[Rfam]
RNA sequence: GUGCAAAUGAUGUGAACGUUCUUUACCACUGAGUAAAGUGAUGUUUCCAAAGGAACCACUGAUGCAC
Numbered sequence: 001g002u003g004c005a006a007a008u009g010a011u012g013u014g015a016a017c018g019u020u021c022u023u024u025a026c027c028a029c030u031g032a033g034u035a036a037a038g039u040g041a042u043g044u045u046u047c048c049a050a051a052g053g054a055a056c057c058a059c060u061g062a063u064g065c066a067c
Stems, first nucleotide, its partner, number of pairs: 001067005
RNA: Small nucleolar RNA SNORD42